Description:
Rfam assigns this 91-nucleotide RNA sequence from Cellulomonas sp. B6 to the family "ZMP/ZTP riboswitch aptamer (pfl RNA motif)".

RNA sequence: GGGCCGGGUCGCGACUGGCGCAGCAGGGUGGGUCACCACCGGGGAGCGACGCAGCAGCUGGACCGACGGGUCGGACGCCUGGGCCCCACGG
Numbered sequence: 001g002g003g004c005c006g007g008g009u010c011g012c013g014a015c016u017g018g019c020g021c022a023g024c025a026g027g028g029u030g031g032g033u034c035a036c037c038a039c040c041g042g043g044g045a046g047c048g049a050c051g052c053a054g055c056a057g058c059u060g061g062a063c064c065g066a067c068g069g070g071u072c073g074g075a076c077g078c079c080u081g082g083g084c085c086c087c088a089c090g091g
Stems, first nucleotide, its partner, number of pairs: 003055002006052001008050005015043002017079004028039004068086005